Shown here is a 46-nucleotide sequence from Aeoliella mucimassa, a member of the family "Acido-Lenti-1 RNA". It scores 46 bits against the family's covariance model. Pairs were carried over by alignment from the consensus structure, which is taken from published work.
[Rfam]
RNA sequence: CCCGGGACUUGCGUCCCGGGCUAUGCGCUGCCGCCGCUCCGCGGCU
Numbered sequence: 001c002c003c004g005g006g007a008c009u010u011g012c013g014u015c016c017c018g019g020g021c022u023a024u025g026c027g028c029u030g031c032c033g034c035c036g037c038u039c040c041g042c043g044g045c046u
Stems, first nucleotide, its partner, number of pairs: 001020008033045005